Background: Shown here is a 135-nucleotide RNA from Myotis lucifugus, a member of the family "Small nucleolar RNA SNORA8". Lineage of the source: Eukaryota > Opisthokonta > Dipnotetrapodomorpha > Laurasiatheria > Myotis. Rfam 15.1 lists 1,490 matches to the family in 610 species. The family's RNA type in Rfam is H/ACA-box small nucleolar RNA. Its family is annotated with nucleolus and RNA processing in the Gene Ontology. The family is grouped with related families in Rfam's "SNORA8 clan". A search with the family's covariance model found it, with a score of 95 bits.
RNA sequence: GGAGAUGUUCUCCUGUGUUCAGCAAUUUAUUCCUGCUGGGUGUUCAAAGGACAGUGCGAUUUAAAUGCAGUAUCUGGCAUCGUUGGUUUUCUUGGCUCUGUGCAUGUUAAACCUGAUACUUUUAUUGACACACUA
Numbered sequence: 001g002g003a004g005a006u007g008u009u010c011u012c013c014u015g016u017g018u019u020c021a022g023c024a025a026u027u028u029a030u031u032c033c034u035g036c037u038g039g040g041u042g043u044u045c046a047a048a049g050g051a052c053a054g055u056g057c058g059a060u061u062u063a064a065a066u067g068c069a070g071u072a073u074c075u076g077g078c079a080u081c082g083u084u085g086g087u088u089u090u091c092u093u094g095g096c097u098c099u100g101u102g103c104a105u106g107u108u109a110a111a112c113c114u115g116a117u118a119c120u121u122u123u124a125u126u127g128a129c130a131c132a133c134u135a
Stems, first nucleotide, its partner, number of pairs: 001052001011051004015043010060124001063121002066118001068115003077103004